RNA sequence: GAGGCAGGCGGUUCUCGUCCGGCAGCGCGUUGCGCCCCCGGGCGCGUUUGGU
Dot-bracket structure: ...............(((((((..((((...))))..)))))))........
RNA: ffh sRNA